[Rfam]
RNA sequence: AAUUUCAGGUAAUCGCGGUCGUCUCGUCGAGAUGGCUGAGGAAAGUCCAUGCUCGCACAGACUGAGAUGUCUGUAGUGUUCGUGCAUAGCAAAGUCAUAAGCUAUGGUAACAAGAUUUGUUAACGGCGGAUGAAAGUCCUAAGGCUUAGCUAAGGGUCAGUAGUCUAUAAAGUGCCACAGAAACGAGGCUUUCUAGAAAUAGAAAGCGUGGAACGGGUAAACCCCUCGAGCGAGCAACCCAAACUUUGGUCGGGGCACCUCUAUCAUGCAGGAAUUCAACUGGCUUAGAGGACACUUCGGUGUAGAUAGAUGAUUACCCAUUAGAAUCUGGCCUAUACUGAUUCUAAUGACAGAACAUGGCUUAUCGAA
Numbered sequence: 001a002a003u004u005u006c007a008g009g010u011a012a013u014c015g016c017g018g019u020c021g022u023c024u025c026g027u028c029g030a031g032a033u034g035g036c037u038g039a040g041g042a043a044a045g046u047c048c049a050u051g052c053u054c055g056c057a058c059a060g061a062c063u064g065a066g067a068u069g070u071c072u073g074u075a076g077u078g079u080u081c082g083u084g085c086a087u088a089g090c091a092a093a094g095u096c097a098u099a100a101g102c103u104a105u106g107g108u109a110a111c112a113a114g115a116u117u118u119g120u121u122a123a124c125g126g127c128g129g130a131u132g133a134a135a136g137u138c139c140u141a142a143g144g145c146u147u148a149g150c151u152a153a154g155g156g157u158c159a160g161u162a163g164u165c166u167a168u169a170a171a172g173u174g175c176c177a178c179a180g181a182a183a184c185g186a187g188g189c190u191u192u193c194u195a196g197a198a199a200u201a202g203a204a205a206g207c208g209u210g211g212a213a214c215g216g217g218u219a220a221a222c223c224c225c226u227c228g229a230g231c232g233a234g235c236a237a238c239c240c241a242a243a244c245u246u247u248g249g250u251c252g253g254g255g256c257a258c259c260u261c262u263a264u265c266a267u268g269c270a271g272g273a274a275u276u277c278a279a280c281u282g283g284c285u286u287a288g289a290g291g292a293c294a295c296u297u298c299g300g301u302g303u304a305g306a307u308a309g310a311u312g313a314u315u316a317c318c319c320a321u322u323a324g325a326a327u328c329u330g331g332c333c334u335a336u337a338c339u340g341a342u343u344c345u346a347a348u349g350a351c352a353g354a355a356c357a358u359g360g361c362u363u364a365u366c367g368a369a
Stems, first nucleotide, its partner, number of pairs: 004369003007365001008318007016038006043363003047360005052234005057074006080229003084225001085106006107124001108122006125224002128166004136157004143151003172222002174218003188207008238254003258291006292303004320348009
RNA: Bacterial RNase P class B